Rfam assigns this 46-nucleotide sequence from Chelonia mydas to the family "Histone 3' UTR stem-loop".
A reference for the family is Williams and Marzluff (1995), "The sequence of the stem and flanking sequences at the 3' end of histone mRNA are critical determinants for the binding of the stem-loop binding protein", Nucleic Acids Res.
It is annotated as a cis-regulatory element.
The base pairs follow the family's consensus structure, which is taken from published work.
A search with the family's covariance model found it, with a score of 38 bits.
[Rfam]
Nucleotides: 046
Stems, first nucleotide, its partner, number of pairs: 006021006
Number, partner (000 for none) and nucleotide at each position: 001000a002000c003000a004000a005000a006021g007020g008019c009018u010017c011016u012000u013000u014000u015000a016011a017010g018009a019008g020007c021006c022000a023000a024000c025000c026000a027000u028000a029000u030000u031000u032000u033000c034000a035000a036000a037000g038000u039000a040000a041000g042000a043000g044000u045000u046000g

The family has 50 seed sequences and 44,596 matches in Rfam 15.1. The source organism's lineage runs through Eukaryota, Bilateria, Teleostomi, Durocryptodira and Chelonia.